This 59-nucleotide RNA sequence from Monodelphis domestica belongs to the Rfam family "mir-7386 microRNA precursor family".
RNA sequence: ACUCGGAUGAGGCACUCUAUUUUGUGCAUCCCUCCAAAAUAAAUGCCUCAUCCUUGGGA
Numbered sequence: 001a002c003u004c005g006g007a008u009g010a011g012g013c014a015c016u017c018u019a020u021u022u023u024g025u026g027c028a029u030c031c032c033u034c035c036a037a038a039a040u041a042a043a044u045g046c047c048u049c050a051u052c053c054u055u056g057g058g059a
Base pairs, nucleotide, nucleotide: 003056005053006052007051008050009049010048011047012046018041019040020039021038022037023036024035026034

Gene Ontology terms of the family: miRNA-mediated post-transcriptional gene silencing and RISC complex.
The source organism's lineage runs through Eukaryota, Eumetazoa, Vertebrata, Dipnotetrapodomorpha and Monodelphis.
The family has 14 seed sequences and 118 matches in Rfam 15.1.